[Rfam]
RNA sequence: UAAACUACAAGAACCUUUUGAAUCAAAUUGUGUAGUGAUUCAAAAGGUUCUCAUAAAC
Dot-bracket structure: .........((((((((((((((((..........)))))))))))))))).......
Numbered sequence: 001u002a003a004a005c006u007a008c009a010a011g012a013a014c015c016u017u018u019u020g021a022a023u024c025a026a027a028u029u030g031u032g033u034a035g036u037g038a039u040u041c042a043a044a045a046g047g048u049u050c051u052c053a054u055a056a057a058c
Stems, first nucleotide, its partner, number of pairs: 010051016
Shown here is a 58-nucleotide RNA from Azima tetracantha, a member of the family "Plastid-ccsA-ndhD-1 3UTR RNA". It is one of the family's seed sequences. Rfam classes the family as a cis-regulatory element. The family's consensus secondary structure was predicted with LocARNA. From the family's description: Plastid-ccsA-ndhD-1 is a non-coding RNA (ncRNA) recognised in plastids. It was found in the three prime untranslated region (3UTR) of ccsA and ndhD genes, its 3UTR location suggests a role in transcript maturation. Taxonomically the source falls in Azima (Eukaryota, Embryophyta, Brassicales, Salvadoraceae).